Shown here is a 54-nucleotide RNA sequence from Potexvirus ecspotati, a member of the family "Potato virus X cis-acting regulatory element". NCBI's taxonomy places the organism under Viruses, Riboviria, Orthornavirae, Alphaflexiviridae, Potexvirus ecspotati. The literature on the family includes a 2003 paper in J Mol Biol by Pillai-Nair et al., "Cis-acting regulatory elements in the potato virus X 3' non-translated region differentially affect minus-strand and plus-strand RNA accumulation". Rfam links the family to the GO term viral genome replication. It is one of the family's seed sequences. From the family's description: This family represents a cis-acting regulatory element which is found in the 3' UTR of the Potato virus X genome. This element has been found to be required for minus strand RNA accumulation and is therefore essential for efficient viral replication.
RNA sequence: CCAUAAUUACGUCUACAUAACCGACGCCUACCCCAGUUUCAUAGUAUUUUCUGG
Numbered sequence: 001c002c003a004u005a006a007u008u009a010c011g012u013c014u015a016c017a018u019a020a021c022c023g024a025c026g027c028c029u030a031c032c033c034c035a036g037u038u039u040c041a042u043a044g045u046a047u048u049u050u051c052u053g054g
Stems, first nucleotide, its partner, number of pairs: 010026004033054004
Dot-bracket structure: .........((((.........))))......((((..............))))